Annotation: A member of the RNA family "c-di-AMP riboswitch aptamer (ydaO/yuaA leader)" from Solirubrobacter ginsenosidimutans, 170 nucleotides long. The organism belongs to Solirubrobacter, within Bacteria. For this family Rfam cites "New RNA motifs suggest an expanded scope for riboswitches in bacterial genetic control" (Barrick et al., Proc Natl Acad Sci U S A, 2004).
RNA sequence: CGGGACAUAACGCCGAACCGCAACUGGCUGACGCCACGAGCGGGCGGGGGAACCAAGGUUUGGAGCAGGGGUCACUGCUCCGGGGGCGAAUCGCCGCAGUAUGCGGCGUAGCGCGACGCUUUCCGCGCGAGCCCGACAGCUAACCCCGUAGGCGGUCGGAAAGAGGAGAU
Numbered sequence: 001c002g003g004g005a006c007a008u009a010a011c012g013c014c015g016a017a018c019c020g021c022a023a024c025u026g027g028c029u030g031a032c033g034c035c036a037c038g039a040g041c042g043g044g045c046g047g048g049g050g051a052a053c054c055a056a057g058g059u060u061u062g063g064a065g066c067a068g069g070g071g072u073c074a075c076u077g078c079u080c081c082g083g084g085g086g087c088g089a090a091u092c093g094c095c096g097c098a099g100u101a102u103g104c105g106g107c108g109u110a111g112c113g114c115g116a117c118g119c120u121u122u123c124c125g126c127g128c129g130a131g132c133c134c135g136a137c138a139g140c141u142a143a144c145c146c147c148g149u150a151g152g153c154g155g156u157c158g159g160a161a162a163g164a165g166g167a168g169a170u
Stems, first nucleotide, its partner, number of pairs: 011154004018043003044149006054083001084134003092108004111128004

A search with the family's covariance model found it, with a score of 80 bits.